The record is an 80-nucleotide RNA sequence from Alligator sinensis, which matches "Mammalian CPEB3 ribozyme" in Rfam.
RNA sequence: AGAGGUCACAAGUUUGAGGCCACAGCAGAAGCAUUCAUGGUGCGACCAUGUCGGAUUCCAACAAAACUGCAAAUUCUGCU
Number, nucleotide and partner (000 for none) at each position: 001a000002g000003a000004g000005g000006u000007c000008a000009c000010a000011a000012g000013u048014u000015u000016g000017a000018g047019g046020c000021c044022a000023c000024a080025g079026c078027a077028g076029a075030a074031g043032c042033a041034u000035u000036c000037a000038u000039g000040g000041u033042g032043c031044g021045a000046c019047c018048a013049u000050g000051u000052c069053g068054g067055a000056u065057u064058c000059c000060a000061a000062c000063a000064a057065a056066a000067c054068u053069g052070c000071a000072a000073a000074u030075u029076c028077u027078g026079c025080u024
Notes:
The organism belongs to Alligator, within Eukaryota. On this family, see Teixeira et al., Nature 2004: "Autocatalytic RNA cleavage in the human beta-globin pre-mRNA promotes transcription termination".